[Rfam]
RNA: Molybdenum/Tungsten riboswitch aptamer (Moco RNA motif)
Organism: Idiomarina seosinensis
RNA sequence: GAGUUCCACAUUCGCCGAGCGACGGGAUCUACGUCUUUUCUAAGAAAGAUACGAACCGUGAGCCGUGGUCAAGCCAGACCACCGGGUGCGACUGGAAACGGUCUCACCUCCCGACCCUGGAAAGGUGACAAUUAUGAAAACGU
Numbered sequence: 001g002a003g004u005u006c007c008a009c010a011u012u013c014g015c016c017g018a019g020c021g022a023c024g025g026g027a028u029c030u031a032c033g034u035c036u037u038u039u040c041u042a043a044g045a046a047a048g049a050u051a052c053g054a055a056c057c058g059u060g061a062g063c064c065g066u067g068g069u070c071a072a073g074c075c076a077g078a079c080c081a082c083c084g085g086g087u088g089c090g091a092c093u094g095g096a097a098a099c100g101g102u103c104u105c106a107c108c109u110c111c112c113g114a115c116c117c118u119g120g121a122a123a124g125g126u127g128a129c130a131a132u133u134a135u136g137a138a139a140a141c142g143u
Base pairs, nucleotide, nucleotide: 004136012128013127014126015125016124019063020062025057026056028054029053033050034049035048036047037046038045039044065082066081067080068079069078084109085108086107087106088105090103091102092101093100094099110120111119